[Rfam]
RNA sequence: UAGCUACAAAAUAAUUUAUUCUGUAGCCACUUUGAGUUACGCUAAUUACUAUGUUAAUUUACGAGAUUAUAGUAACUCCUUACUAAGUGGUUUACUAUAACGCUAUGGUAAAUAUCCCCAUGUGUUAUAGUAACCCAACUAUCGUAAAUAUGUAUUGACAUUAUCGUAAAUAGAGAAUGGAGGUGGCUACAGAAUAACUUAUUUAGUAGCGG
Numbered sequence: 001u002a003g004c005u006a007c008a009a010a011a012u013a014a015u016u017u018a019u020u021c022u023g024u025a026g027c028c029a030c031u032u033u034g035a036g037u038u039a040c041g042c043u044a045a046u047u048a049c050u051a052u053g054u055u056a057a058u059u060u061a062c063g064a065g066a067u068u069a070u071a072g073u074a075a076c077u078c079c080u081u082a083c084u085a086a087g088u089g090g091u092u093u094a095c096u097a098u099a100a101c102g103c104u105a106u107g108g109u110a111a112a113u114a115u116c117c118c119c120a121u122g123u124g125u126u127a128u129a130g131u132a133a134c135c136c137a138a139c140u141a142u143c144g145u146a147a148a149u150a151u152g153u154a155u156u157g158a159c160a161u162u163a164u165c166g167u168a169a170a171u172a173g174a175g176a177a178u179g180g181a182g183g184u185g186g187c188u189a190c191a192g193a194a195u196a197a198c199u200u201a202u203u204u205a206g207u208a209g210c211g212g
Stems, first nucleotide, its partner, number of pairs: 001212001003210005009204006016197018037176001050172001057171006065165003069161002074155001080147004087142006093132011107117002

The record is a 212-nucleotide RNA from Miscanthus lutarioriparius, which matches "MIR6217 microRNA precursor family" in Rfam. The match comes from Rfam's covariance-model search (157 bits). Lineage of the source: Eukaryota > Streptophytina > Mesangiospermae > commelinids > Miscanthus.